[Rfam]
RNA sequence: ACGUCACGAUUAAUGAGGCGUUCAUCCUGAGCUGAUCAGGCACUGAACGGGGAGUAUUCCAUCGUCGUGCUGAGCACGUAACGAACUCCUGCAAAAACUCAACACAAUUCUCGCCCUGCUACACAUUAUCUGAUG
Numbered sequence: 001a002c003g004u005c006a007c008g009a010u011u012a013a014u015g016a017g018g019c020g021u022u023c024a025u026c027c028u029g030a031g032c033u034g035a036u037c038a039g040g041c042a043c044u045g046a047a048c049g050g051g052g053a054g055u056a057u058u059c060c061a062u063c064g065u066c067g068u069g070c071u072g073a074g075c076a077c078g079u080a081a082c083g084a085a086c087u088c089c090u091g092c093a094a095a096a097a098c099u100c101a102a103c104a105c106a107a108u109u110c111u112c113g114c115c116c117u118g119c120u121a122c123a124c125a126u127u128a129u130c131u132g133a134u135g
Base pairs, nucleotide, nucleotide: 002135003134004133005132008130009129011128012127013126014125015124019049020048021047022046023045024044050090051089052088053087062084063083064082065081066078067077068076069075070074

Record summary: The family of this 135-nucleotide sequence from Xenorhabdus cabanillasii is "EFASI RNA". A search with the family's covariance model found it, with a score of 59 bits. Lineage of the source: Bacteria > Pseudomonadota > Gammaproteobacteria > Morganellaceae > Xenorhabdus. Rfam classes the family as a small RNA.